This 128-nucleotide sequence from Bagarius yarrelli belongs to the Rfam family "Small nucleolar RNA SNORA65". Rfam links the family to the GO terms RNA processing and nucleolus. The base pairs follow the family's consensus structure, which was predicted with RNAalifold. The family has 14 seed sequences and 1,089 matches in Rfam 15.1. By type it is an H/ACA-box small nucleolar RNA. The match comes from Rfam's covariance-model search (78 bits). Taxonomically the source falls in Bagarius (Eukaryota, Euteleostomi, Actinopteri, Sisorinae).
[Rfam]
RNA sequence: CCUGCCACUGUGCCAGCCUGUGUGAGUGACUUGGUAUAAUCCAGUGGAGGCUGAGAGUAGCUCCAACUCUAGGACGCAGAGCUGCUCAGUCUGAUGAGUAACUCUGUGCCAAAAGACCUGGAACACAC
Numbered sequence: 001c002c003u004g005c006c007a008c009u010g011u012g013c014c015a016g017c018c019u020g021u022g023u024g025a026g027u028g029a030c031u032u033g034g035u036a037u038a039a040u041c042c043a044g045u046g047g048a049g050g051c052u053g054a055g056a057g058u059a060g061c062u063c064c065a066a067c068u069c070u071a072g073g074a075c076g077c078a079g080a081g082c083u084g085c086u087c088a089g090u091c092u093g094a095u096g097a098g099u100a101a102c103u104c105u106g107u108g109c110c111a112a113a114a115g116a117c118c119u120g121g122a123a124c125a126c127a128c
Base pairs, nucleotide, nucleotide: 005047006046007045008044009043010042017034018033020030021028022027063121064120065119068115070113072110073109077106078105079104080103081102085098086097087096
Dot-bracket structure: ....((((((......((.(((....)).)..)).......))))))...............(((..(.(.((...(((((...(((........)))...)))))..))..).)...))).......